[Rfam]
RNA sequence: ACUUGUAAAGGGCAAAGCUGCUGAAAGGUGGUGACGCAAAGCUACGGGUCUAAGGUGUAAGCUAUGAUCGCCGGGCUGCCGAU
Numbered sequence: 001a002c003u004u005g006u007a008a009a010g011g012g013c014a015a016a017g018c019u020g021c022u023g024a025a026a027g028g029u030g031g032u033g034a035c036g037c038a039a040a041g042c043u044a045c046g047g048g049u050c051u052a053a054g055g056u057g058u059a060a061g062c063u064a065u066g067a068u069c070g071c072c073g074g075g076c077u078g079c080c081g082a083u
Base pairs, nucleotide, nucleotide: 012037013036017032018031019030020029021028022027040077041076042075043074045073046072047071048068049067050066055062056061
Shown here is an 83-nucleotide RNA sequence from Anaerosolibacter carboniphilus, a member of the family "c-di-GMP-I riboswitch aptamer".